[Rfam]
RNA sequence: AAAAAAGUUUUCUAGGGUUCCGUAGUUUCGACUAGCCUGGUCCGAGAGAAAACGCGCACUGCGUACACGGUAGGACAAAAGCCUAGGAGUA
Numbered sequence: 001a002a003a004a005a006a007g008u009u010u011u012c013u014a015g016g017g018u019u020c021c022g023u024a025g026u027u028u029c030g031a032c033u034a035g036c037c038u039g040g041u042c043c044g045a046g047a048g049a050a051a052a053c054g055c056g057c058a059c060u061g062c063g064u065a066c067a068c069g070g071u072a073g074g075a076c077a078a079a080a081g082c083c084u085a086g087g088a089g090u091a
Stems, first nucleotide, its partner, number of pairs: 007053006015043002020040002022037001023034004054064004066086001068089001072084003
The record is a 91-nucleotide RNA from Enterococcus alcedinis, which matches "Guanidine-I riboswitch aptamer" in Rfam. The source organism's lineage runs through Bacteria, Bacillati, Bacillota, Lactobacillales and Enterococcus. This family represents a conserved RNA structure found upstream of the ykkC and yxkD genes in Bacillus subtilis and related genes in other bacteria. A search with the family's covariance model found it, with a score of 78 bits. Rfam links the family to the GO term regulation of gene expression. The family has 100 seed sequences and 1,509 matches in Rfam 15.1. Pairs were carried over by alignment from the consensus structure.